[Rfam]
RNA sequence: GGAUGUGAGGGCAAUCUGGCUGCGACAUCUGUCACCCCAUUGAUCGCCAGGGUUGAUUUGGCUGGUCUGGCUGGCUAGGUGGGUGUCCCCUUCCUCCCUCAACGCCCCGUGUUCGUCCCUCCCGAAGCUGCGUGCUCGGUUGAAGAGGACGACCUCCCCGAUAGAGACGGUACCGUUCAUUGGUCAAGGGUAUACAGUAGCUGUGCUCCCCUGCUAGAACCUCCAAACAAGCUCAAGAAAACCUAAUAGGUUUUGGAAAAAGCUUCUCUGU
Numbered sequence: 001g002g003a004u005g006u007g008a009g010g011g012c013a014a015u016c017u018g019g020c021u022g023c024g025a026c027a028u029c030u031g032u033c034a035c036c037c038c039a040u041u042g043a044u045c046g047c048c049a050g051g052g053u054u055g056a057u058u059u060g061g062c063u064g065g066u067c068u069g070g071c072u073g074g075c076u077a078g079g080u081g082g083g084u085g086u087c088c089c090c091u092u093c094c095u096c097c098c099u100c101a102a103c104g105c106c107c108c109g110u111g112u113u114c115g116u117c118c119c120u121c122c123c124g125a126a127g128c129u130g131c132g133u134g135c136u137c138g139g140u141u142g143a144a145g146a147g148g149a150c151g152a153c154c155u156c157c158c159c160g161a162u163a164g165a166g167a168c169g170g171u172a173c174c175g176u177u178c179a180u181u182g183g184u185c186a187a188g189g190g191u192a193u194a195c196a197g198u199a200g201c202u203g204u205g206c207u208c209c210c211c212u213g214c215u216a217g218a219a220c221c222u223c224c225a226a227a228c229a230a231g232c233u234c235a236a237g238a239a240a241a242c243c244u245a246a247u248a249g250g251u252u253u254u255g256g257a258a259a260a261a262g263c264u265u266c267u268c269u270g271u
Stems, first nucleotide, its partner, number of pairs: 001108002006101006014092001018090002024087010035074002037070003042067004046062003116170002119166003122139004127135002140161003147157003200263003207257001209255001213251002224249001227247001230244002

7SK RNA: a 271-nucleotide sequence from Neopipo cinnamomea. By type it is a non-coding RNA gene. Pairs were carried over by alignment from the consensus structure, which is taken from published work. Rfam describes the family as follows. 7SK was discovered as an abundant small nuclear RNA in the mid-70s but a possible function has only recently been suggested. Two independent studies have found that 7SK RNA binds the CDK9/cyclin T complex (known as elongation factor P-TEFb).